[Rfam]
RNA sequence: CAUUGAAGUGACGAAAUCCGAUUCAGGAAAGUUUAUAUGUCGACCUAAAAAAUCAUUCAGACUACAAUUAUCUGAUCAAUG
Numbered sequence: 001c002a003u004u005g006a007a008g009u010g011a012c013g014a015a016a017u018c019c020g021a022u023u024c025a026g027g028a029a030a031g032u033u034u035a036u037a038u039g040u041c042g043a044c045c046u047a048a049a050a051a052a053u054c055a056u057u058c059a060g061a062c063u064a065c066a067a068u069u070a071u072c073u074g075a076u077c078a079a080u081g
Stems, first nucleotide, its partner, number of pairs: 001081006
Dot-bracket structure: ((((((.....................................................................))))))
About this RNA:
This 81-nucleotide sequence from Solanum lycopersicum belongs to the Rfam family "Small nucleolar RNA Z155". Lineage of the source: Eukaryota > Streptophyta > Spermatophyta > Solaneae > Solanum subgen. Lycopersicon. The family's RNA type in Rfam is C/D-box small nucleolar RNA. Gene Ontology terms of the family: RNA processing and nucleolus. On this family, see Chen et al., Nucleic Acids Res 2003: "The high diversity of snoRNAs in plants: identification and comparative study of 120 snoRNA genes from Oryza sativa".